Rfam assigns this 79-nucleotide RNA sequence from Alligator sinensis to the family "Small nucleolar RNA SNORD53/SNORD92". Gene Ontology terms of the family: nucleolus and RNA processing. A reference for the family is Kiss-Laszlo et al. (1996), "Site-specific ribose methylation of preribosomal RNA: a novel function for small nucleolar RNAs", Cell. The match comes from Rfam's covariance-model search (85 bits). Rfam classes the family as a C/D-box small nucleolar RNA. Lineage of the source: Eukaryota > Chordata > Vertebrata > Amniota > Alligator. Clan: SNORD52 clan.
Nucleotides: 079
Base pairs, nucleotide, nucleotide: 001079002078003077004076
Number, partner (000 for none) and nucleotide at each position: 001079a002078u003077g004076c005000u006000g007000u008000g009000a010000u011000g012000a013000c014000u015000u016000c017000c018000a019000u020000g021000u022000u023000g024000g025000u026000u027000u028000c029000g030000c031000u032000u033000a034000u035000u036000g037000c038000u039000g040000a041000a042000u043000u044000c045000c046000a047000g048000u049000g050000a051000a052000g053000a054000c055000a056000u057000u058000c059000u060000u061000c062000u063000c064000u065000u066000g067000g068000c069000u070000g071000u072000c073000u074000g075000a076004g077003c078002g079001u